This 156-nucleotide RNA sequence from Trifolium pratense belongs to the Rfam family "Small nucleolar RNA snoR138". Rfam links the family to the GO terms RNA processing and nucleolus. The family has 7 seed sequences and 308 matches in Rfam 15.1. A search with the family's covariance model found it, with a score of 63 bits.

[Rfam]
RNA sequence: UUUGCCUUCGAAUAACUAAAAUGGUGAUUCAUUACAUUUUAGUUCAGACAGAGGCAUAUAUAAAACACCCGAAUUGGUUUGGUUUGAUGGUACUGAAUGAAUGCAUCAUUUUCAGUUCCAUUUCCAUACCUGUAGUUUGUUCCAAUUCGGACAUUC
Numbered sequence: 001u002u003u004g005c006c007u008u009c010g011a012a013u014a015a016c017u018a019a020a021a022u023g024g025u026g027a028u029u030c031a032u033u034a035c036a037u038u039u040u041a042g043u044u045c046a047g048a049c050a051g052a053g054g055c056a057u058a059u060a061u062a063a064a065a066c067a068c069c070c071g072a073a074u075u076g077g078u079u080u081g082g083u084u085u086g087a088u089g090g091u092a093c094u095g096a097a098u099g100a101a102u103g104c105a106u107c108a109u110u111u112u113c114a115g116u117u118c119c120a121u122u123u124c125c126a127u128a129c130c131u132g133u134a135g136u137u138u139g140u141u142c143c144a145a146u147u148c149g150g151a152c153a154u155u156c
Base pairs, nucleotide, nucleotide: 003056004055005054006053007052008051014044015043016042017041018040019039020038021037024035025034026033070149071148072147073146074145075144077130080126081125082124087121088120089119090118092116093115094114095113096112097111